A member of the RNA family "DUF805b RNA" from Kordia antarctica, 35 nucleotides long. Pairs were carried over by alignment from the consensus structure, which is taken from published work. Clan: DUF805 clan.
RNA sequence: CAGGCGGAUACUGAAAAGCCUUAAAAGAGUAAGUC
Numbered sequence: 001c002a003g004g005c006g007g008a009u010a011c012u013g014a015a016a017a018g019c020c021u022u023a024a025a026a027g028a029g030u031a032a033g034u035c
Stems, first nucleotide, its partner, number of pairs: 002021004010034003

Background:
It is annotated as a cis-regulatory element. A search with the family's covariance model found it, with a score of 36 bits.